A member of the RNA family "Clostridiales-1 RNA", 164 nucleotides long. By type it is a small RNA.
Nucleotides: 164
Base pairs, nucleotide, nucleotide: 001164002163003162004161005159011071012070013069014068018064019063021061023059024058025057027055028054029053031051032050034047035046036045037044038043075120076119077118078117079116080115081114082113085110086109087108088107092103093102094101123154124153125152126151127150128149129148134144135143136142137141
Number, partner (000 for none) and nucleotide at each position: 001164u002163g003162u004161a005159u006000a007000a008000g009000c010000u011071c012070c013069c014068g015000g016000a017000c018064a019063g020000c021061g022000g023059c024058u025057g026000g027055g028054c029053g030000a031051c032050u033000g034047g035046u036045a037044a038043g039000c040000u041000u042000g043038c044037u045036u046035g047034c048000c049000g050032a051031g052000a053029c054028g055027c056000a057025c058024a059023g060000a061021c062000a063019u064018u065000g066000g067000a068014c069013g070012g071011g072000g073000c074000a075120a076119c077118a078117g079116g080115u081114a082113u083000g084000a085110g086109c087108a088107c089000g090000c091000a092103g093102g094101c095000a096000u097000a098000u099000g100000c101094g102093c103092c104000g105000g106000a107088g108087u109086g110085c111000g112000a113082a114081u115080g116079c117078c118077u119076g120075u121000c122000g123154g124153g125152a126151u127150u128149g129148c130000g131000g132000g133000a134144g135143u136142g137141c138000g139000a140000u141137g142136c143135a144134c145000g146000g147000g148129g149128c150127a151126a152125u153124c154123c155000g156000c157000a158000g159005g160000u161004u162003a163002u164001a
The base pairs follow the family's consensus structure, which is taken from published work.